[Rfam]
RNA: terC RNA
RNA sequence: CGGCUGCUCCGGGCCCCUCUGGCGCGCCUGCCGGCCUCGCGUGAUGUCGGAGCCAUACC
Numbered sequence: 001c002g003g004c005u006g007c008u009c010c011g012g013g014c015c016c017c018u019c020u021g022g023c024g025c026g027c028c029u030g031c032c033g034g035c036c037u038c039g040c041g042u043g044a045u046g047u048c049g050g051a052g053c054c055a056u057a058c059c
Base pairs, nucleotide, nucleotide: 006053007052008051009050010049011048012047022042023041024040025039026038